RNA sequence: GUAAUGUUUCUUGCUCAAAUGAGUAUUCCAACCACAGUCACAUUUGGCAUGAAUGUGUGCCACUGUCCCCAAAGGCUGAGAUGCUCAUUUGAGCAAGCAAUGUUAA
Number, nucleotide and partner (000 for none) at each position: 001g000002u000003a000004a103005u102006g101007u100008u099009u000010c097011u096012u095013g094014c093015u092016c091017a090018a089019a088020u087021g086022a085023g084024u083025a082026u081027u080028c000029c078030a077031a000032c000033c000034a000035c000036a000037g000038u000039c000040a000041c000042a000043u000044u000045u000046g000047g000048c000049a000050u000051g000052a000053a000054u000055g000056u000057g000058u000059g000060c000061c000062a000063c000064u000065g000066u000067c000068c000069c000070c000071a000072a000073a000074g000075g000076c000077u030078g029079a000080g027081a026082u025083g024084c023085u022086c021087a020088u019089u018090u017091g016092a015093g014094c013095a012096a011097g010098c000099a008100a007101u006102g005103u004104u000105a000106a000

Rfam assigns this 106-nucleotide sequence from Glycine max to the family "MIR828 microRNA precursor family". A reference for the family is Rajagopalan et al. (2006), "A diverse and evolutionarily fluid set of microRNAs in Arabidopsis thaliana", Genes Dev. It is one of the family's seed sequences. NCBI's taxonomy places the organism under Eukaryota, Euphyllophyta, Fabales, Glycine, Glycine subgen. Soja. Its family is annotated with RISC complex and miRNA-mediated post-transcriptional gene silencing in the Gene Ontology.